[Rfam]
RNA sequence: UAGUAAAGCCUUAGAGAGUAUCUACACUGGUAGUAUUCUUCUUUCUUGGUGGAAAAGUACUUGCCACUGUAGAUACUCCCUAAGGCUUUAACA
Numbered sequence: 001u002a003g004u005a006a007a008g009c010c011u012u013a014g015a016g017a018g019u020a021u022c023u024a025c026a027c028u029g030g031u032a033g034u035a036u037u038c039u040u041c042u043u044u045c046u047u048g049g050u051g052g053a054a055a056a057g058u059a060c061u062u063g064c065c066a067c068u069g070u071a072g073a074u075a076c077u078c079c080c081u082a083a084g085g086c087u088u089u090a091a092c093a
Stems, first nucleotide, its partner, number of pairs: 004090011016078002019075008031063002033060002036055002039052002
RNA: MIR5200 microRNA precursor family